The record is a 447-nucleotide sequence from Geotrypetes seraphini, which matches "Vertebrate telomerase RNA" in Rfam.
[Rfam]
RNA sequence: GUUGCCUGUGUUAGGUGUGUGUUUUUUUUUUAAACCUAAUGCAGUACUUCAGCAGUUGCUCUCCACUGGGUAUGAUCACUGUUUUUCUAGCUGACUUUCAGUGCGUAGACAGAGCAAAGUCCAGUUUCAUGGCAAAGGAGAAAAAAAGCAUUAGUUGGUGGAUGUCCCUUUCCUAAGAGUCCACGCCAUCCUCUCUCUUCUUUGGGCCUGUUGGCAAUAGCCCCUGGCCUCCCUCCUUCUCUAGGCUGCGGUUAUCCUGGGCCCUCAGCUCCAGCAGGAGUUCCACUGCGGUCGCAUACAGUUCACCUCUGUCAGCCUUGAGGUGACUGGGAUGGAACAGGUGGGCUCAUAGCAGCGUGCAGGAAAAAGCAAAUGAUGAACUGGCACCUGUGGGGGUCACGCCCCUAAAUAGUGGGACAUGUGAUGUAUGCACUUCUUCAGGCGCAC
Numbered sequence: 001g002u003u004g005c006c007u008g009u010g011u012u013a014g015g016u017g018u019g020u021g022u023u024u025u026u027u028u029u030u031u032a033a034a035c036c037u038a039a040u041g042c043a044g045u046a047c048u049u050c051a052g053c054a055g056u057u058g059c060u061c062u063c064c065a066c067u068g069g070g071u072a073u074g075a076u077c078a079c080u081g082u083u084u085u086u087c088u089a090g091c092u093g094a095c096u097u098u099c100a101g102u103g104c105g106u107a108g109a110c111a112g113a114g115c116a117a118a119g120u121c122c123a124g125u126u127u128c129a130u131g132g133c134a135a136a137g138g139a140g141a142a143a144a145a146a147a148g149c150a151u152u153a154g155u156u157g158g159u160g161g162a163u164g165u166c167c168c169u170u171u172c173c174u175a176a177g178a179g180u181c182c183a184c185g186c187c188a189u190c191c192u193c194u195c196u197c198u199u200c201u202u203u204g205g206g207c208c209u210g211u212u213g214g215c216a217a218u219a220g221c222c223c224c225u226g227g228c229c230u231c232c233c234u235c236c237u238u239c240u241c242u243a244g245g246c247u248g249c250g251g252u253u254a255u256c257c258u259g260g261g262c263c264c265u266c267a268g269c270u271c272c273a274g275c276a277g278g279a280g281u282u283c284c285a286c287u288g289c290g291g292u293c294g295c296a297u298a299c300a301g302u303u304c305a306c307c308u309c310u311g312u313c314a315g316c317c318u319u320g321a322g323g324u325g326a327c328u329g330g331g332a333u334g335g336a337a338c339a340g341g342u343g344g345g346c347u348c349a350u351a352g353c354a355g356c357g358u359g360c361a362g363g364a365a366a367a368a369g370c371a372a373a374u375g376a377u378g379a380a381c382u383g384g385c386a387c388c389u390g391u392g393g394g395g396g397u398c399a400c401g402c403c404c405c406u407a408a409a410u411a412g413u414g415g416g417a418c419a420u421g422u423g424a425u426g427u428a429u430g431c432a433c434u435u436c437u438u439c440a441g442g443c444g445c446a447c
Stems, first nucleotide, its partner, number of pairs: 005177001007175002010172001013169003017165002020160002058115005073107002077103005090155005096148003180363002184359003204348009224335003228331003233325001235323003247296005253291001256288001259284003298310001300308002378439003383434001384431003397424005403416003
The family's RNA type in Rfam is non-coding RNA gene. The family is grouped with related families in Rfam's "Telomerase clan". A reference for the family is Chen et al. (2000), "Secondary structure of vertebrate telomerase RNA", Cell. The family has 37 seed sequences and 523 matches in Rfam 15.1. It scores 104 bits against the family's covariance model. Taxonomically the source falls in Geotrypetes (Eukaryota, Bilateria, Vertebrata, Gymnophiona).